Rfam assigns this 82-nucleotide RNA sequence from Clostridium sp. CAG:411 to the family "c-di-GMP-I riboswitch aptamer". Rfam's curators write: GEMM was predicted in a large-scale screen for bacterial structured RNA regulatory elements. Genes associated with GEMM are involved in a diverse array of functions, including chemotaxis regulation, signal transduction, secretion and chitin. Taxonomically the source falls in Clostridium (Bacteria, Bacillati, Bacillota, Clostridiaceae). Pairs were carried over by alignment from the consensus structure, which is taken from published work.
[Rfam]
RNA sequence: CGUGUUGAAAGGCAAAACAGGUGAAAGCCUGUGACGCAAAACUAUAGGGUCUACGUUUAUAAUAUGACAGCCAGUUGCAAUU
Numbered sequence: 001c002g003u004g005u006u007g008a009a010a011g012g013c014a015a016a017a018c019a020g021g022u023g024a025a026a027g028c029c030u031g032u033g034a035c036g037c038a039a040a041a042c043u044a045u046a047g048g049g050u051c052u053a054c055g056u057u058u059a060u061a062a063u064a065u066g067a068c069a070g071c072c073a074g075u076u077g078c079a080a081u082u
Stems, first nucleotide, its partner, number of pairs: 012037002017032006040076004047072002049068003056062002